Rfam assigns this 51-nucleotide RNA from Hyphococcus luteus to the family "chrB-b RNA". Lineage of the source: Bacteria > Alphaproteobacteria > Parvularculales > Parvularculaceae > Hyphococcus. The family's consensus secondary structure is taken from published work.

[Rfam]
RNA sequence: GCGGGCCUGCAGCGGGCGCCCGCUGCAGGCGAGGUUUCGCCCAAGUCCCGC
Numbered sequence: 001g002c003g004g005g006c007c008u009g010c011a012g013c014g015g016g017c018g019c020c021c022g023c024u025g026c027a028g029g030c031g032a033g034g035u036u037u038c039g040c041c042c043a044a045g046u047c048c049c050g051c
Stems, first nucleotide, its partner, number of pairs: 001023006012051005028041005